[Rfam]
RNA sequence: ACUACCUAAGCUGGAACAAAAAGAGAUUCGAUGUUGAGGACAUCGAUGAACUUUUGGCUUGUGGUUAUGAUGUUGUGUUUGCCUCAUGUCCGGUAAUCUGGUCAGGGUAGCUCAUUUACUGUUUUUCAUUUCCUGUAUAUUUAUUCUGUCCUUCCGCAGUGAUUUUAUGCAGCAUCGCUUGAUUUUCGGGGCUUUUUUCC
Numbered sequence: 001a002c003u004a005c006c007u008a009a010g011c012u013g014g015a016a017c018a019a020a021a022a023g024a025g026a027u028u029c030g031a032u033g034u035u036g037a038g039g040a041c042a043u044c045g046a047u048g049a050a051c052u053u054u055u056g057g058c059u060u061g062u063g064g065u066u067a068u069g070a071u072g073u074u075g076u077g078u079u080u081g082c083c084u085c086a087u088g089u090c091c092g093g094u095a096a097u098c099u100g101g102u103c104a105g106g107g108u109a110g111c112u113c114a115u116u117u118a119c120u121g122u123u124u125u126u127c128a129u130u131u132c133c134u135g136u137a138u139a140u141u142u143a144u145u146c147u148g149u150c151c152u153u154c155c156g157c158a159g160u161g162a163u164u165u166u167a168u169g170c171a172g173c174a175u176c177g178c179u180u181g182a183u184u185u186u187c188g189g190g191g192c193u194u195u196u197u198u199c200c
Stems, first nucleotide, its partner, number of pairs: 009059004015055002021053003028046007087104002090101004106120005138169003171193003175189003